mir-9195 microRNA precursor family: an 87-nucleotide sequence from Myotis davidii.
The source organism's lineage runs through Eukaryota, Bilateria, Vertebrata, Mammalia and Myotis.
The family's consensus secondary structure was predicted with RNAalifold.
RNA sequence: AGAGGCCCUCUGUGGCCGGGGUGGAACGCUUGCCUCAUCGCCGUGGCGAUCAAGCAAGCAUUCCACUAGGCCACUCACACUAUCCGC
Numbered sequence: 001a002g003a004g005g006c007c008c009u010c011u012g013u014g015g016c017c018g019g020g021g022u023g024g025a026a027c028g029c030u031u032g033c034c035u036c037a038u039c040g041c042c043g044u045g046g047c048g049a050u051c052a053a054g055c056a057a058g059c060a061u062u063c064c065a066c067u068a069g070g071c072c073a074c075u076c077a078c079a080c081u082a083u084c085c086g087c
Base pairs, nucleotide, nucleotide: 004084005083012074013073014072015071016070017069020067021066022065023064024063025062026061028059029058030057031056032055033054037050038049039048040047041046